RNA sequence: UGCCGUGUUGUCUAUGAUGCAUCUCUGUGUCUGAUACAAGCGUGAAGUCAUCCAGCAGUAAAUUUCGUCACUACCACUGAGACAACAGCA
Numbered sequence: 001u002g003c004c005g006u007g008u009u010g011u012c013u014a015u016g017a018u019g020c021a022u023c024u025c026u027g028u029g030u031c032u033g034a035u036a037c038a039a040g041c042g043u044g045a046a047g048u049c050a051u052c053c054a055g056c057a058g059u060a061a062a063u064u065u066c067g068u069c070a071c072u073a074c075c076a077c078u079g080a081g082a083c084a085a086c087a088g089c090a
Stems, first nucleotide, its partner, number of pairs: 001090003006087007

Shown here is a 90-nucleotide RNA from Chanos chanos, a member of the family "Small nucleolar RNA SNORD70".
Rfam's curators write: snoRNA HBII-234 belongs to the C/D family of snoRNAs. It is the human orthologue of the mouse MBII-234 and is predicted to guide 2'O-ribose methylation of the small 18S rRNA on position A512.
The family's RNA type in Rfam is C/D-box small nucleolar RNA.
Taxonomically the source falls in Chanos (Eukaryota, Metazoa, Teleostomi, Chanoidei).
The pairing is the family consensus, mapped onto this sequence.